[Rfam]
RNA: Small nucleolar RNA SNORD81
Organism: Pan troglodytes
RNA sequence: CAAAUACAUGAUGAUCUCUCCUCAGUUUGAACUCUCUCACUGAUCACUUGAUGACAAUAAAAGAUCUGAUAUUGUG
Numbered sequence: 001c002a003a004a005u006a007c008a009u010g011a012u013g014a015u016c017u018c019u020c021c022u023c024a025g026u027u028u029g030a031a032c033u034c035u036c037u038c039a040c041u042g043a044u045c046a047c048u049u050g051a052u053g054a055c056a057a058u059a060a061a062a063g064a065u066c067u068g069a070u071a072u073u074g075u076g
Base pairs, nucleotide, nucleotide: 001076002075003073004072005071006070